chrB-b RNA: a 55-nucleotide RNA sequence.
The family's consensus secondary structure is taken from published work.
It is annotated as a cis-regulatory element.
The sequence is in the family's curated seed alignment.
[Rfam]
RNA sequence: UGGGGUCAAUGCAGAUUCCCCGCCGUCGUCAAGACGCCUCGCGUCCAAAUUCUGC
Numbered sequence: 001u002g003g004g005g006u007c008a009a010u011g012c013a014g015a016u017u018c019c020c021c022g023c024c025g026u027c028g029u030c031a032a033g034a035c036g037c038c039u040c041g042c043g044u045c046c047a048a049a050u051u052c053u054g055c
Base pairs, nucleotide, nucleotide: 001022002021003020004019005018011055012054013053014052015051033045034044035043036042037041